[Rfam]
RNA sequence: GUCUGUGAUGAAGUCGCCCGAUUUGGUUGAGGCUGCUGUCGUCACCAAGUUCCUGCUUGUCAGGAAGAACCUACUUGGUGCCGCUGCUCUCGCAUGAUAUCUCCGGGUAAAUCUGAGGC
Numbered sequence: 001g002u003c004u005g006u007g008a009u010g011a012a013g014u015c016g017c018c019c020g021a022u023u024u025g026g027u028u029g030a031g032g033c034u035g036c037u038g039u040c041g042u043c044a045c046c047a048a049g050u051u052c053c054u055g056c057u058u059g060u061c062a063g064g065a066a067g068a069a070c071c072u073a074c075u076u077g078g079u080g081c082c083g084c085u086g087c088u089c090u091c092g093c094a095u096g097a098u099a100u101c102u103c104c105g106g107g108u109a110a111a112u113c114u115g116a117g118g119c
Base pairs, nucleotide, nucleotide: 001119002118003117051065052064053063054062055061

The family of this 119-nucleotide sequence from Zea mays is "Small nucleolar RNA Z278". The match comes from Rfam's covariance-model search (62 bits). Taxonomically the source falls in Zea (Eukaryota, Mesangiospermae, Petrosaviidae, Poales). The family's RNA type in Rfam is C/D-box small nucleolar RNA. The base pairs follow the family's consensus structure, which was predicted with PFOLD. About the family: snoZ278 is a C/D box small nucleolar RNA. Its methylation guide targets have not been reported. Its family is annotated with nucleolus and RNA processing in the Gene Ontology.